Shown here is a 62-nucleotide RNA from Serpentinicella alkaliphila, a member of the family "RAGATH-18 RNA".
It is annotated as a small RNA.
Taxonomically the source falls in Serpentinicella (Bacteria, Bacillati, Bacillota, Natronincolaceae).
The match comes from Rfam's covariance-model search (47 bits).
RNA sequence: CCUUUGGACAACAUAUCAAACUGGAGUAGUCUUAUGACAAAACAGGUGCGUUGAAUAAGGAA
Numbered sequence: 001c002c003u004u005u006g007g008a009c010a011a012c013a014u015a016u017c018a019a020a021c022u023g024g025a026g027u028a029g030u031c032u033u034a035u036g037a038c039a040a041a042a043c044a045g046g047u048g049c050g051u052u053g054a055a056u057a058a059g060g061a062a
Base pairs, nucleotide, nucleotide: 001060002059003058004057009048010047012046021045022044023043029038030037031036